[Rfam]
RNA sequence: AAAGGAUGAAUCCAAAGAGAUCGCAUGAUCCGGAAACGAAAGCAAAUUUUUGAAAAAAAUUUCUUAACAAAGAAAAACAAUUAUUGAGAAAUAAUUUAGCUUAAUUAGGAUCAAUGCGAUCCCUUUGGAUCCUUUCUC
Numbered sequence: 001a002a003a004g005g006a007u008g009a010a011u012c013c014a015a016a017g018a019g020a021u022c023g024c025a026u027g028a029u030c031c032g033g034a035a036a037c038g039a040a041a042g043c044a045a046a047u048u049u050u051u052g053a054a055a056a057a058a059a060u061u062u063c064u065u066a067a068c069a070a071a072g073a074a075a076a077a078c079a080a081u082u083a084u085u086g087a088g089a090a091a092u093a094a095u096u097u098a099g100c101u102u103a104a105u106u107a108g109g110a111u112c113a114a115u116g117c118g119a120u121c122c123c124u125u126u127g128g129a130u131c132c133u134u135u136c137u138c
Stems, first nucleotide, its partner, number of pairs: 003137004008132001010130008019121003023117003026113006
mir-393 microRNA precursor family: a 138-nucleotide RNA sequence from Arabis alpina. Gene Ontology terms of the family: RISC complex and miRNA-mediated post-transcriptional gene silencing. On this family, see Kruszka et al., J Plant Physiol 2012: "Role of microRNAs and other sRNAs of plants in their changing environments". The source organism's lineage runs through Eukaryota, Viridiplantae, Streptophyta, Embryophyta and Arabis.